[Rfam]
RNA sequence: GCCGAGAAGAGGAAGAGAGAGACUCUAAGAGCAUUGGGAAUAGGAUCAUAGAGGAAAGUCUAGAGCUUGAUUUCUCCUCCAGUGUCAGUGUAGAGGUAGAAAUUUGCUUUGGGUUUUCCUGAUGCCUCAUAUUCCUAUUGAUCUUAGGCACUCCUUCCUCUUCCUUUUGGCU
Numbered sequence: 001g002c003c004g005a006g007a008a009g010a011g012g013a014a015g016a017g018a019g020a021g022a023c024u025c026u027a028a029g030a031g032c033a034u035u036g037g038g039a040a041u042a043g044g045a046u047c048a049u050a051g052a053g054g055a056a057a058g059u060c061u062a063g064a065g066c067u068u069g070a071u072u073u074c075u076c077c078u079c080c081a082g083u084g085u086c087a088g089u090g091u092a093g094a095g096g097u098a099g100a101a102a103u104u105u106g107c108u109u110u111g112g113g114u115u116u117u118c119c120u121g122a123u124g125c126c127u128c129a130u131a132u133u134c135c136u137a138u139u140g141a142u143c144u145u146a147g148g149c150a151c152u153c154c155u156u157c158c159u160c161u162u163c164c165u166u167u168u169g170g171c172u
Base pairs, nucleotide, nucleotide: 009163010162011161012160013159015157016156017155019153020152021151024148025147026146027145028144029143030142032140033139035137036136037135038134039133040132041131042130044128045127047124048123049122051120053119054118055117056116057115058114059113060112061111062110
Overview:
MIR2118 microRNA precursor family: a 172-nucleotide RNA sequence from Triticum aestivum. The source organism's lineage runs through Eukaryota, Viridiplantae, Embryophyta, Tracheophyta and Triticum. For this family Rfam cites "Characterization and expression profiles of miRNAs in rice seeds" (Xue et al., Nucleic Acids Res, 2009). The match comes from Rfam's covariance-model search (132 bits). Gene Ontology terms of the family: miRNA-mediated post-transcriptional gene silencing and RISC complex.